[Rfam]
RNA: pemK RNA
RNA sequence: AUAAUGAUACGCCCGUAUCGCCAUAGUCCGAGCGUUAACAGCGUCGCAGGCAGUGGGUGCGGCUGCAUGAGAACCAUGCAGGGGUGAAACUCCCGUGA
Numbered sequence: 001a002u003a004a005u006g007a008u009a010c011g012c013c014c015g016u017a018u019c020g021c022c023a024u025a026g027u028c029c030g031a032g033c034g035u036u037a038a039c040a041g042c043g044u045c046g047c048a049g050g051c052a053g054u055g056g057g058u059g060c061g062g063c064u065g066c067a068u069g070a071g072a073a074c075c076a077u078g079c080a081g082g083g084g085u086g087a088a089a090c091u092c093c094c095g096u097g098a
Stems, first nucleotide, its partner, number of pairs: 012095001013062007063081003067077003082094003